[Rfam]
RNA sequence: UCCGUCGCUGAUUGUCCAAACGCAAUUCUUGUGCAGUGGAAACGGCGGAACCAAGAAUUGUGUCUGGACAUCUGUGGCAGA
Numbered sequence: 001u002c003c004g005u006c007g008c009u010g011a012u013u014g015u016c017c018a019a020a021c022g023c024a025a026u027u028c029u030u031g032u033g034c035a036g037u038g039g040a041a042a043c044g045g046c047g048g049a050a051c052c053a054a055g056a057a058u059u060g061u062g063u064c065u066g067g068a069c070a071u072c073u074g075u076g077g078c079a080g081a
Stems, first nucleotide, its partner, number of pairs: 002080001004078004010072003014069005021062011
Dot-bracket structure: .(.((((..(((.(((((..(((((((((((....................)))))))))))..))))))))..)))).).
RNA: mir-219 microRNA precursor family